RNA sequence: UGACUUUGAUCAAAAUCAAACUGCUUCAAGUUUGACCAAGUUUAUAGGAAAAAAAGUAAUAUUUUCGACCCAGAUAAAUUUAUUAUAAAAAUAUAUUUAAUUAUUAAUUUAAUAAAACUAAUUUGGUAAUGCAAAUAUUACUAUAUUUGUCUAUAAACUUAGUCAAAUUUGAAGCAGUUUGACUUUGACCAAAGUAAA
Numbered sequence: 001u002g003a004c005u006u007u008g009a010u011c012a013a014a015a016u017c018a019a020a021c022u023g024c025u026u027c028a029a030g031u032u033u034g035a036c037c038a039a040g041u042u043u044a045u046a047g048g049a050a051a052a053a054a055a056g057u058a059a060u061a062u063u064u065u066c067g068a069c070c071c072a073g074a075u076a077a078a079u080u081u082a083u084u085a086u087a088a089a090a091a092u093a094u095a096u097u098u099a100a101u102u103a104u105u106a107a108u109u110u111a112a113u114a115a116a117a118c119u120a121a122u123u124u125g126g127u128a129a130u131g132c133a134a135a136u137a138u139u140a141c142u143a144u145a146u147u148u149g150u151c152u153a154u155a156a157a158c159u160u161a162g163u164c165a166a167a168u169u170u171g172a173a174g175c176a177g178u179u180u181g182a183c184u185u186u187g188a189c190c191a192a193a194g195u196a197a198a
Stems, first nucleotide, its partner, number of pairs: 005193004011187004016182011031167005045153004050148003055142002058139007066131002070126006